[Rfam]
RNA sequence: GGGAUGUGAUGAGUGGUCAUAUCUUGCAAUUGCUGCGAGAGGAGUGCCUGCUCCCAGCCUGGUUACGACAAUGAGGCACCCUCAAUGUUACCAAUCUGAUCCC
Numbered sequence: 001g002g003g004a005u006g007u008g009a010u011g012a013g014u015g016g017u018c019a020u021a022u023c024u025u026g027c028a029a030u031u032g033c034u035g036c037g038a039g040a041g042g043a044g045u046g047c048c049u050g051c052u053c054c055c056a057g058c059c060u061g062g063u064u065a066c067g068a069c070a071a072u073g074a075g076g077c078a079c080c081c082u083c084a085a086u087g088u089u090a091c092c093a094a095u096c097u098g099a100u101c102c103c
Stems, first nucleotide, its partner, number of pairs: 001103004014093004023039005041082002044079005060074001062072002
Description:
Small nucleolar RNA Z279/snoR105/snoR108: a 103-nucleotide RNA sequence from Protea cynaroides. It is annotated as a C/D-box small nucleolar RNA. Rfam describes the family as follows. This family includes the plant snoRNAs known as Z279, snoR105 and snoR108. On this family, see Marker et al., Curr Biol 2002: "Experimental RNomics: identification of 140 candidates for small non-messenger RNAs in the plant Arabidopsis thaliana".